[Rfam]
RNA sequence: GGCUUUGUGCAGUGGCAGUGUUGUAAUUAAUGAGGUUCUUCCAAAGUGUGAUUAUUGCUAAUUAAAAACAUUCCCCAAUACCCUGCUGUAAUGACUUGCAUCAGAGUGGCACUGGCAAUUUUGACAGUCUCUACAGAGA
Numbered sequence: 001g002g003c004u005u006u007g008u009g010c011a012g013u014g015g016c017a018g019u020g021u022u023g024u025a026a027u028u029a030a031u032g033a034g035g036u037u038c039u040u041c042c043a044a045a046g047u048g049u050g051a052u053u054a055u056u057g058c059u060a061a062u063u064a065a066a067a068a069c070a071u072u073c074c075c076c077a078a079u080a081c082c083c084u085g086c087u088g089u090a091a092u093g094a095c096u097u098g099c100a101u102c103a104g105a106g107u108g109g110c111a112c113u114g115g116c117a118a119u120u121u122u123g124a125c126a127g128u129c130u131c132u133a134c135a136g137a138g139a
Stems, first nucleotide, its partner, number of pairs: 020052005026047003034042002085116003088112002092108002096104002128139004

The family of this 139-nucleotide RNA from Sapajus apella is "U4 spliceosomal RNA". The organism belongs to Sapajus, within Eukaryota. Pairs were carried over by alignment from the consensus structure, which is taken from published work. The family's RNA type in Rfam is spliceosomal small nuclear RNA. Rfam's curators write: U4 small nuclear RNA (U4 snRNA) is a component of the major U2-dependent spliceosome. It scores 77 bits against the family's covariance model.